Notes: The record is a 90-nucleotide sequence from Stieleria varia, which matches "c-di-GMP-I-GGC riboswitch aptamer" in Rfam. Pairs were carried over by alignment from the consensus structure, which is taken from published work. Gene Ontology term of the family: cyclic-di-GMP binding. The organism belongs to Stieleria, within Bacteria.

[Rfam]
RNA sequence: CUCGAUAAUGGCAAAACCUGUGAGAACAGGUGACGCAAAGCGAUGGGUCCUCGCCGCAUCGAUUGCGGACGGAUCGCCAAGCUACCGAAA
Numbered sequence: 001c002u003c004g005a006u007a008a009u010g011g012c013a014a015a016a017c018c019u020g021u022g023a024g025a026a027c028a029g030g031u032g033a034c035g036c037a038a039a040g041c042g043a044u045g046g047g048u049c050c051u052c053g054c055c056g057c058a059u060c061g062a063u064u065g066c067g068g069a070c071g072g073a074u075c076g077c078c079a080a081g082c083u084a085c086c087g088a089a090a
Stems, first nucleotide, its partner, number of pairs: 003087002011036002016031006034076001039083003044079003047074003